[Rfam]
RNA sequence: ACUGGGCGUUGUGGCGUGCGCUUGUAAUCCAGCUGCUUGGAAGUCGGAGGCAGAGGAUUGUUUGAGUUCGGGACUCCUGCGGGUCGUUGUGCUAUGGCGAUCGAGCGUCCACGCUAAGUUCUGCAUCGACAUGGAGAACUGCACGGAGGUAUGGUUAUCCAGGUUGUCUAAGGAGGGGCGAACCGGCCCAGGGCGGAAACGCAGCAGGCAAAAGCCCCCGUGCGGAACAGUAGCGGGAUAGCGCUUGUGAAUAACAGGCGGCUGGCAGCCCGAACAAUACAACGAGACCUGUCUCUUU
Number, nucleotide and partner (000 for none) at each position: 001a044002c043003u042004g023005g022006g021007c020008g019009u018010u000011g000012u000013g000014g000015c000016g000017u000018g009019c008020g007021c006022u005023u004024g000025u000026a000027a000028u041029c040030c039031a000032g000033c000034u000035g000036c000037u000038u000039g030040g029041a028042a003043g002044u001045c000046g296047g295048a294049g293050g292051c291052a290053g289054a000055g000056g000057a000058u285059u284060g283061u282062u281063u000064g000065a000066g275067u274068u273069c272070g271071g270072g269073a000074c000075u000076c000077c268078u267079g266080c265081g000082g263083g262084u261085c260086g259087u258088u257089g000090u000091g255092c000093u253094a252095u251096g000097g000098c000099g000100a000101u000102c247103g246104a245105g244106c243107g242108u241109c237110c236111a000112c235113g234114c233115u232116a231117a000118g228119u227120u226121c225122u224123g223124c222125a221126u220127c166128g165129a164130c163131a000132u161133g160134g159135a158136g000137a156138a155139c154140u153141g152142c000143a150144c149145g000146g000147a000148g000149g144150u143151a000152u141153g140154g139155u138156u137157a000158u135159c134160c133161a132162g000163g130164u129165u128166g127167u173168c172169u000170a000171a000172g168173g167174a000175g218176g217177g216178g215179c214180g000181a000182a000183c000184c000185g000186g209187c208188c207189c000190a000191g000192g000193g202194c201195g200196g000197a000198a000199a000200c195201g194202c193203a000204g000205c000206a000207g188208g187209c186210a000211a000212a000213a000214g179215c178216c177217c176218c175219c000220g126221u125222g124223c123224g122225g121226a120227a119228c118229a000230g000231u116232a115233g114234c113235g112236g110237g109238a000239u000240a000241g108242c107243g106244c105245u104246u103247g102248u000249g000250a000251a095252u094253a093254a000255c091256a000257g088258g087259c086260g085261g084262c083263u082264g000265g080266c079267a078268g077269c072270c071271c070272g069273a068274a067275c066276a000277a000278u000279a000280c000281a062282a061283c060284g059285a058286g000287a000288c000289c053290u052291g051292u050293c049294u048295c047296u046297u000298u000
RNA: Metazoan signal recognition particle RNA
Organism: Holothuria leucospilota